[Rfam]
Ribosomal S15 leader: a 120-nucleotide RNA from Fluviicoccus keumensis. Its Rfam clan is "Ribosomal Protein S15 Leader clan". About the family: The E. coli Ribosomal S15 gene 5' UTR can form two alternative structures. One that is a series of three hairpins, The other includes a pseudoknot. Pairs were carried over by alignment from the consensus structure, which is taken from published work.

RNA sequence: CACGCUGGCUGUAGAGAUGCACGGCCAGACGCAUUUCCUUUCGCAUCUCGUGGAGAAAGUACCAUGGCUCUUACCGUAGCCCAAAAAGCUGAAAUUAUCGCCAAAUUCGCCCGUUGCGAG
Numbered sequence: 001c002a003c004g005c006u007g008g009c010u011g012u013a014g015a016g017a018u019g020c021a022c023g024g025c026c027a028g029a030c031g032c033a034u035u036u037c038c039u040u041u042c043g044c045a046u047c048u049c050g051u052g053g054a055g056a057a058a059g060u061a062c063c064a065u066g067g068c069u070c071u072u073a074c075c076g077u078a079g080c081c082c083a084a085a086a087a088g089c090u091g092a093a094a095u096u097a098u099c100g101c102c103a104a105a106u107u108c109g110c111c112c113g114u115u116g117c118g119a120g
Stems, first nucleotide, its partner, number of pairs: 007026006052071004